Source information: The record is a 90-nucleotide sequence from Cynoglossus semilaevis, which matches "mir-204 microRNA precursor family" in Rfam. The family's consensus secondary structure was predicted with RNAalifold. A search with the family's covariance model found it, with a score of 90 bits. Its family is annotated with miRNA-mediated post-transcriptional gene silencing and RISC complex in the Gene Ontology. Rfam 15.1 lists 1,730 matches to the family in 644 species.
RNA sequence: AUAUGACCUAUGGGCUUCCCUUUGUCAUCCUAUGCCUGGGAUUAUAGAAAAUGGGCUGGGAAGGCAAAGGGAUGCCCAGUCGUCAUAAAA
Dot-bracket structure: ................((((((.((..(((((.((((...............)))))))))..)).))))))..................
Numbered sequence: 001a002u003a004u005g006a007c008c009u010a011u012g013g014g015c016u017u018c019c020c021u022u023u024g025u026c027a028u029c030c031u032a033u034g035c036c037u038g039g040g041a042u043u044a045u046a047g048a049a050a051a052u053g054g055g056c057u058g059g060g061a062a063g064g065c066a067a068a069g070g071g072a073u074g075c076c077c078a079g080u081c082g083u084c085a086u087a088a089a090a
Stems, first nucleotide, its partner, number of pairs: 017072006024065002028061005034056004